Shown here is a 109-nucleotide RNA sequence from Beta vulgaris, a member of the family "mir-399 microRNA precursor family". NCBI's taxonomy places the organism under Eukaryota, Caryophyllales, Amaranthaceae, Beta, Beta vulgaris. The family's consensus secondary structure was predicted with PFOLD. Rfam's curators write: mir-399 was identified in both Arabidopsis thaliana and Oryza sativa computationally and was later experimentally verified. mir-399 is thought to target mRNAs coding for a phosphatase transporter. The mature sequence is excised from the 3' arm of the hairpin. For this family Rfam cites "Computational Identification of Plant MicroRNAs and Their Targets, Including a Stress-Induced miRNA" (Jones-Rhoades and Bartel, Mol Cell, 2004). Its family is annotated with RISC complex and miRNA-mediated post-transcriptional gene silencing in the Gene Ontology. It scores 67 bits against the family's covariance model.

[Rfam]
RNA sequence: UGUUGAAUUGCAGGGCGAGUCUCGUUUGGCAAAAAAGAUUGAUCAUGUAUGUAAAAUGCAUACGAAGAUUUCUCUUUUUGCCAAGGGAGACUUGCCCUGUGAUUUCUCA
Numbered sequence: 001u002g003u004u005g006a007a008u009u010g011c012a013g014g015g016c017g018a019g020u021c022u023c024g025u026u027u028g029g030c031a032a033a034a035a036a037g038a039u040u041g042a043u044c045a046u047g048u049a050u051g052u053a054a055a056a057u058g059c060a061u062a063c064g065a066a067g068a069u070u071u072c073u074c075u076u077u078u079u080g081c082c083a084a085g086g087g088a089g090a091c092u093u094g095c096c097c098u099g100u101g102a103u104u105u106c107u108c109a
Stems, first nucleotide, its partner, number of pairs: 005105005011099009021089003027083009
Dot-bracket structure: ....(((((.(((((((((.(((...(((((((((.......................................)))))))))...))).))))))))).)))))....